Nucleotides: 086
Base pairs, nucleotide, nucleotide: 003086004085005084006082007081008080009079010078011077012076013075014074016073017072019070020069021068
Number, partner (000 for none) and nucleotide at each position: 001000a002000a003086g004085u005084a006082g007081u008080g009079u010078g011077a012076c013075a014074u015000g016073c017072c018000c019070g020069u021068u022000g023000g024000g025000g026000u027000u028000a029000u030000u031000a032000c033000u034000c035000u036000a037000a038000u039000g040000a041000u042000u043000a044000u045000u046000u047000a048000u049000u050000u051000a052000u053000u054000a055000a056000u057000u058000g059000c060000u061000u062000u063000g064000g065000g066000a067000u068021a069020a070019c071000a072017g073016g074014g075013u076012g077011u078010u079009a080008c081007a082006u083000g084005u085004g086003c